The family of this 88-nucleotide RNA sequence from Paenibacillus ginsengarvi is "BsrC". The family's consensus secondary structure was predicted with CMfinder. About the family: The 301 nucleotide sequence from Kouji Nakamura has been trimmed to a highly conserved ~85 nucleotide long core to form this family. For this family Rfam cites "Novel small RNA-encoding genes in the intergenic regions of Bacillus subtilis" (Saito et al., Gene, 2008). The family has 29 seed sequences and 572 matches in Rfam 15.1.
RNA sequence: GAAACCUAAAACAAUGAAAGCCCUACCUCUCUUUCAUCCUUACGACUCCUUGAUCGCGCCAGUGUGAAUCAGGUCUAACUUGUAAUCA
Numbered sequence: 001g002a003a004a005c006c007u008a009a010a011a012c013a014a015u016g017a018a019a020g021c022c023c024u025a026c027c028u029c030u031c032u033u034u035c036a037u038c039c040u041u042a043c044g045a046c047u048c049c050u051u052g053a054u055c056g057c058g059c060c061a062g063u064g065u066g067a068a069u070c071a072g073g074u075c076u077a078a079c080u081u082g083u084a085a086u087c088a
Stems, first nucleotide, its partner, number of pairs: 034067003039062002041058001043056003047052001
Background
By type it is a small RNA. A search with the family's covariance model found it, with a score of 85 bits.